[Rfam]
RNA sequence: CCGCUGUCACAACGGCUUCCUGGCGUGACGGUCUGAUAACAAUGGAGCG
Number, nucleotide and partner (000 for none) at each position: 001c000002c000003g000004c031005u030006g029007u028008c027009a026010c025011a000012a000013c022014g021015g048016c047017u046018u000019c045020c044021u014022g013023g000024c000025g010026u009027g008028a007029c006030g005031g004032u000033c000034u000035g000036a000037u000038a000039a000040c000041a000042a000043u000044g020045g019046a017047g016048c015049g000

Annotation: Rfam assigns this 49-nucleotide RNA sequence from Histidinibacterium lentulum to the family "SAM/SAH riboswitch aptamer". NCBI's taxonomy places the organism under Bacteria, Pseudomonadati, Rhodobacterales, Paracoccaceae, Histidinibacterium. Rfam links the family to the GO terms S-adenosylmethionine metabolic process and regulation of gene expression. On this family, see Weickhmann et al., Nucleic Acids Res 2019: "The structure of the SAM/SAH-binding riboswitch".